[Rfam]
RNA sequence: GCCAGGUGUGGUGGCAGGUGCCUGUAGUCUCAGCUACUUGGGAGGUUGGGGCAGGAGGAUCACUAGAGCCCAGGAGUUCUGGGCUAUAGUGUGCUAUGCCCAUCGGGUAUCUGCACUAAGCUCAACAUUAUUAUGGUGACCUCCCGGGAGCAAGGAACCACCAGGUUGCCUAAGGAGGGGUGAACCGGCCCAUGUGGGAAACAGAGCAGGUCAAAACUCCCAUGAUGAUCAGUAGUGGGAUUGCACCUGUGAAUAGCCACUGUACUCCAGCCUGGGCAACAUAGUGAGACCCUGUCUCUA
Numbered sequence: 001g002c003c004a005g006g007u008g009u010g011g012u013g014g015c016a017g018g019u020g021c022c023u024g025u026a027g028u029c030u031c032a033g034c035u036a037c038u039u040g041g042g043a044g045g046u047u048g049g050g051g052c053a054g055g056a057g058g059a060u061c062a063c064u065a066g067a068g069c070c071c072a073g074g075a076g077u078u079c080u081g082g083g084c085u086a087u088a089g090u091g092u093g094c095u096a097u098g099c100c101c102a103u104c105g106g107g108u109a110u111c112u113g114c115a116c117u118a119a120g121c122u123c124a125a126c127a128u129u130a131u132u133a134u135g136g137u138g139a140c141c142u143c144c145c146g147g148g149a150g151c152a153a154g155g156a157a158c159c160a161c162c163a164g165g166u167u168g169c170c171u172a173a174g175g176a177g178g179g180g181u182g183a184a185c186c187g188g189c190c191c192a193u194g195u196g197g198g199a200a201a202c203a204g205a206g207c208a209g210g211u212c213a214a215a216a217c218u219c220c221c222a223u224g225a226u227g228a229u230c231a232g233u234a235g236u237g238g239g240a241u242u243g244c245a246c247c248u249g250u251g252a253a254u255a256g257c258c259a260c261u262g263u264a265c266u267c268c269a270g271c272c273u274g275g276g277c278a279a280c281a282u283a284g285u286g287a288g289a290c291c292c293u294g295u296c297u298c299u300a
Stems, first nucleotide, its partner, number of pairs: 001046003004023006028043003048298008060287006068277007079270005085264007093257005099251001104249005110243001111239002114237005120230001122228003126224003129168002132165001134163005142155002146151001169175002177220005187212004195204001197202001
The family of this 300-nucleotide sequence from Papio anubis is "Metazoan signal recognition particle RNA". For this family Rfam cites "Towards the structure of the mammalian signal recognition particle" (Wild et al., Curr Opin Struct Biol, 2002). Rfam describes the family as follows. The signal recognition particle (SRP) is a universally conserved ribonucleoprotein. Clan: SRP clan.